[Rfam]
RNA sequence: GGUCAGUGAUGUGAAGUAAGUUCUGAUGCAAAGGGUCCCCUCCCAGAAACUCCUGGUUCCCAGCAGCCCCUGCUUUCUGCCAUCAUGCUGUAGUUGUGCACUGAUGGGCUCAGGGGCUCCUGACAGAUAGGAUGAAGUCUCAGUCCGUGUCUCCGAGAGACCAAGGAGCCACGGCAACGACACACAUCCGAUAUAGCCAAUCAGCAAGGAGCACUCAGGGCCUGGGCAGGGGCCGUGCGUGAUCUGCAGUUUUCAAGCUGAGACC
Numbered sequence: 001g002g003u004c005a006g007u008g009a010u011g012u013g014a015a016g017u018a019a020g021u022u023c024u025g026a027u028g029c030a031a032a033g034g035g036u037c038c039c040c041u042c043c044c045a046g047a048a049a050c051u052c053c054u055g056g057u058u059c060c061c062a063g064c065a066g067c068c069c070c071u072g073c074u075u076u077c078u079g080c081c082a083u084c085a086u087g088c089u090g091u092a093g094u095u096g097u098g099c100a101c102u103g104a105u106g107g108g109c110u111c112a113g114g115g116g117c118u119c120c121u122g123a124c125a126g127a128u129a130g131g132a133u134g135a136a137g138u139c140u141c142a143g144u145c146c147g148u149g150u151c152u153c154c155g156a157g158a159g160a161c162c163a164a165g166g167a168g169c170c171a172c173g174g175c176a177a178c179g180a181c182a183c184a185c186a187u188c189c190g191a192u193a194u195a196g197c198c199a200a201u202c203a204g205c206a207a208g209g210a211g212c213a214c215u216c217a218g219g220g221c222c223u224g225g226g227c228a229g230g231g232g233c234c235g236u237g238c239g240u241g242a243u244c245u246g247c248a249g250u251u252u253u254c255a256a257g258c259u260g261a262g263a264c265c
Base pairs, nucleotide, nucleotide: 001265002264003263004262033245034244035243036242037241043226044225046222057211058210059209060208061122062121063120065118066117067116080107081106082105083104084103085102088098130189131188132187133186134185146173147172148171149170151168152167153166154165
This 265-nucleotide RNA from Acipenser ruthenus belongs to the Rfam family "Small Cajal body specific RNA 6". It is annotated as a small Cajal body RNA. NCBI's taxonomy places the organism under Eukaryota, Opisthokonta, Actinopteri, Acipenseriformes, Acipenser. About the family: U88 is small Cajal body specific RNA (scaRNA). scaRNAs are a novel class of small nuclear RNAs which localise to the Cajal bodies. U88 is found associated with both fibrillarin and Gar1p and co-localises with coilin in Cajal bodies. On this family, see Darzacq et al., EMBO J 2002: "Cajal body-specific small nuclear RNAs: a novel class of 2'-O-methylation and pseudouridylation guide RNAs". The match comes from Rfam's covariance-model search (91 bits). The family's consensus secondary structure is taken from published work.